The record is a 58-nucleotide sequence from Kolkwitzia amabilis, which matches "Plastid-psbA-3 3UTR RNA" in Rfam. The family's consensus secondary structure was predicted with LocARNA.
[Rfam]
RNA sequence: AAAAGGAGCAAUAAUCCCCUUCUUGUUCUAUCAAGAGGGGAUUAUUGCUCCUUUUUAU
Numbered sequence: 001a002a003a004a005g006g007a008g009c010a011a012u013a014a015u016c017c018c019c020u021u022c023u024u025g026u027u028c029u030a031u032c033a034a035g036a037g038g039g040g041a042u043u044a045u046u047g048c049u050c051c052u053u054u055u056u057a058u
Stems, first nucleotide, its partner, number of pairs: 002054014020037006
Its Rfam clan is "Plastid-psbA 3UTR RNA clan".